[Rfam]
RNA sequence: GUCUUUAUGCAGGGGCAUUACGUGUAUCAGUGAGGAUUCGUCCGAGAUCAUGUUUUUGCUGGUUGAAAACUUAAACCUGACAACUUCUUGAAUGCUAUAGUAUUUUACUUGUGUGUUUAAGAGAAUUUUUGGAACCAUUUUUUUUCAUAAUCAUCAAACAUGUGGGAAAUCACGAAUAAUG
Number, nucleotide and partner (000 for none) at each position: 001g000002u000003c000004u000005u000006u000007a000008u000009g000010c000011a000012g000013g000014g000015g000016c000017a000018u000019u000020a053021c052022g051023u050024g049025u000026a048027u047028c046029a000030g000031u000032g000033a000034g043035g042036a041037u000038u000039c000040g000041u036042c035043c034044g000045a000046g028047a027048u026049c024050a023051u022052g021053u020054u000055u000056u000057u000058g000059c000060u000061g000062g000063u000064u000065g000066a000067a000068a000069a000070c000071u000072u000073a000074a000075a000076c000077c000078u000079g000080a000081c000082a000083a000084c000085u123086u122087c121088u120089u119090g118091a117092a116093u115094g114095c113096u111097a110098u000099a000100g000101u000102a000103u000104u000105u000106u000107a000108c000109u000110u097111g096112u000113g095114u094115g093116u092117u091118u090119a089120a088121g087122a086123g085124a000125a000126u000127u000128u000129u000130u000131g000132g000133a000134a000135c000136c181137a180138u179139u178140u000141u000142u000143u000144u000145u000146c000147a000148u000149a000150a000151u000152c000153a000154u000155c000156a000157a000158a000159c000160a000161u000162g000163u000164g000165g000166g000167a000168a000169a000170u000171c000172a000173c000174g000175a000176a000177u000178a139179a138180u137181g136
The record is a 181-nucleotide RNA sequence from Candida albicans, which matches "U4 spliceosomal RNA" in Rfam.
The base pairs follow the family's consensus structure, which is taken from published work.
The sequence is in the family's curated seed alignment.
Rfam describes the family as follows. U4 small nuclear RNA (U4 snRNA) is a component of the major U2-dependent spliceosome.